[Rfam]
RNA sequence: UUGUCGGCGAGCCCUUAUCAUUUUGCUGUCCGGUCGGAUUUUUUGGUCACUGGACGGAGAACUGAUAAGGGCUUGCGGGUGC
Numbered sequence: 001u002u003g004u005c006g007g008c009g010a011g012c013c014c015u016u017a018u019c020a021u022u023u024u025g026c027u028g029u030c031c032g033g034u035c036g037g038a039u040u041u042u043u044u045g046g047u048c049a050c051u052g053g054a055c056g057g058a059g060a061a062c063u064g065a066u067a068a069g070g071g072c073u074u075g076c077g078g079g080u081g082c
Stems, first nucleotide, its partner, number of pairs: 012071009021061004026056001029053002
RNA: mir-184 microRNA precursor family
Organism: Notodromas monacha